[Rfam]
Shown here is a 220-nucleotide RNA sequence from Vibrio sediminis, a member of the family "Lysine riboswitch aptamer". The organism belongs to Vibrio, within Bacteria.
RNA sequence: UUCUGAGGUAGAGGUGCAAUUACUAUCAGUAUCCGUCAUUGGGGUGAUGCCAAUGAAUGACGGGGAAAGGAGUCGUUGCCGAAGUGAACGUGCAGAUCAAAGCCGUUUGCUGGGGUUACAUCGAACAGGUGUAACACUGCCAUAGUUUAUGUUCAGAGCCGAUCACUAUUUAUAUAGGCCUGAGCGUAGAGUGUUUAAACUAUGGAGCGCUACUGUAGGU
Numbered sequence: 001u002u003c004u005g006a007g008g009u010a011g012a013g014g015u016g017c018a019a020u021u022a023c024u025a026u027c028a029g030u031a032u033c034c035g036u037c038a039u040u041g042g043g044g045u046g047a048u049g050c051c052a053a054u055g056a057a058u059g060a061c062g063g064g065g066a067a068a069g070g071a072g073u074c075g076u077u078g079c080c081g082a083a084g085u086g087a088a089c090g091u092g093c094a095g096a097u098c099a100a101a102g103c104c105g106u107u108u109g110c111u112g113g114g115g116u117u118a119c120a121u122c123g124a125a126c127a128g129g130u131g132u133a134a135c136a137c138u139g140c141c142a143u144a145g146u147u148u149a150u151g152u153u154c155a156g157a158g159c160c161g162a163u164c165a166c167u168a169u170u171u172a173u174a175u176a177g178g179c180c181u182g183a184g185c186g187u188a189g190a191g192u193g194u195u196u197a198a199a200c201u202a203u204g205g206a207g208c209g210c211u212a213c214u215g216u217a218g219g220u
Stems, first nucleotide, its partner, number of pairs: 007214005016079005022073003032064008083111008112138002115135008140205010